[Rfam]
RNA sequence: UACUACCAAACCCUACCUCAACCUCCACGUGGUCAUCGCUGGGAAUUCUUUCUUAUUGAAGAACUGCAGACGAAGAAGG
Numbered sequence: 001u002a003c004u005a006c007c008a009a010a011c012c013c014u015a016c017c018u019c020a021a022c023c024u025c026c027a028c029g030u031g032g033u034c035a036u037c038g039c040u041g042g043g044a045a046u047u048c049u050u051u052c053u054u055a056u057u058g059a060a061g062a063a064c065u066g067c068a069g070a071c072g073a074a075g076a077a078g079g
Base pairs, nucleotide, nucleotide: 012079013078014077016075018073019072021033022032023031044065046063047062048061049060050059052058
Annotation: A member of the RNA family "drz-agam-1 ribozyme" from Hermetia illucens, 79 nucleotides long. The match comes from Rfam's covariance-model search (42 bits). The family has 7 seed sequences and 10,507 matches in Rfam 15.1. Pairs were carried over by alignment from the consensus structure, which is taken from published work. The literature on the family includes a 2009 paper in Science by Webb et al., "Widespread occurrence of self-cleaving ribozymes".